[Rfam]
RNA: U1 spliceosomal RNA
RNA sequence: UCAUUCACUGGCAGGGGAGUUACUGUGAUCACGAAGGUGGUUUCCCCGGGGUGAGGCUCAUCCAUUGCACUGCGGAUGUGCUUGACCCCUGUGAUUUCCUGAAAUGUGGGAAACUCCACUGCAUAAUUUGUGUUAGUGGCGGACUGUGUGUGCACUCUCCCCUG
Number, nucleotide and partner (000 for none) at each position: 001u000002c000003a000004u000005u000006c000007a000008c000009u000010g000011g122012c121013a120014g119015g047016g046017g045018a000019g043020u000021u000022a041023c040024u039025g038026u037027g000028a000029u000030c000031a000032c000033g000034a000035a000036g000037g026038u025039g024040g023041u022042u000043u019044c000045c017046c016047c015048g090049g089050g088051g087052u000053g086054a000055g082056g081057c080058u000059c078060a077061u076062c075063c074064a000065u000066u000067g000068c000069a000070c000071u000072g000073c000074g063075g062076a061077u060078g059079u000080g057081c056082u055083u000084g000085a000086c053087c051088c050089c049090u048091g000092u000093g116094a115095u113096u112097u111098c000099c109100u108101g000102a000103a000104a000105u000106g000107u000108g100109g099110g000111a097112a096113a095114c000115u094116c093117c000118a000119c014120u013121g012122c011123a000124u000125a000126a000127u000128u000129u000130g000131u000132g000133u000134u000135a000136g000137u000138g163139g162140c000141g160142g159143a158144c000145u000146g155147u154148g153149u000150g000151u000152g000153c148154a147155c146156u000157c000158u143159c142160c141161c000162c139163u138164g000